[Rfam]
RNA sequence: AGCUUUUACAAGGUAUCAGCACUUUUCUUUCAUUGGGGGGGGGAAGGCAUGAGGAAAGUACCAAAGAGCAGCAGACUUUUAAACUUUAAAUAGCCAGGUCUGAGUGCCUGAACUUGCCUUUUCAUUUUACUUCAUCCUCCACGGAGUUCAAUCACUUGGAGUGCCUACUUCACUUCUUUAAGUGAAAGAGUAAGUUAAAGAAAA
Numbered sequence: 001a002g003c004u005u006u007u008a009c010a011a012g013g014u015a016u017c018a019g020c021a022c023u024u025u026u027c028u029u030u031c032a033u034u035g036g037g038g039g040g041g042g043g044a045a046g047g048c049a050u051g052a053g054g055a056a057a058g059u060a061c062c063a064a065a066g067a068g069c070a071g072c073a074g075a076c077u078u079u080u081a082a083a084c085u086u087u088a089a090a091u092a093g094c095c096a097g098g099u100c101u102g103a104g105u106g107c108c109u110g111a112a113c114u115u116g117c118c119u120u121u122u123c124a125u126u127u128u129a130c131u132u133c134a135u136c137c138u139c140c141a142c143g144g145a146g147u148u149c150a151a152u153c154a155c156u157u158g159g160a161g162u163g164c165c166u167a168c169u170u171c172a173c174u175u176c177u178u179u180a181a182g183u184g185a186a187a188g189a190g191u192a193a194g195u196u197a198a199a200g201a202a203a204a
Base pairs, nucleotide, nucleotide: 002020003019004018007015008014009013029146030145031144034141035140036139037138038137039136043133044132045131046130051126052125054123056122057121058120073101074100075099076098077097078096102117104115106113155200156199157198159196161195162194168188169187170186171184172183173182174181175180

The family of this 204-nucleotide sequence from Marmota marmota is "Connexin-43 internal ribosome entry site (IRES)".
A search with the family's covariance model found it, with a score of 171 bits.
A reference for the family is Schiavi et al. (1999), "Connexin43 mRNA contains a functional internal ribosome entry site", FEBS Lett.
The organism belongs to Marmota marmota, within Eukaryota.
Its family is annotated with ribosome binding in the Gene Ontology.
About the family: This family represents the connexin-43 internal ribosome entry site (IRES) which allows cap independent translation during conditions such as heat shock and stress.